[Rfam]
RNA sequence: GGGGGGGGACGACCCCCCCAGAUACAGACCACUACCGGGGGGGGACGACCCCC
Numbered sequence: 001g002g003g004g005g006g007g008g009a010c011g012a013c014c015c016c017c018c019c020a021g022a023u024a025c026a027g028a029c030c031a032c033u034a035c036c037g038g039g040g041g042g043g044g045a046c047g048a049c050c051c052c053c
Stems, first nucleotide, its partner, number of pairs: 002019007040053005
A member of the RNA family "Guanidine-II riboswitch aptamer (mini-ykkC)" from Salmo trutta, 53 nucleotides long. The organism belongs to Salmo, within Eukaryota.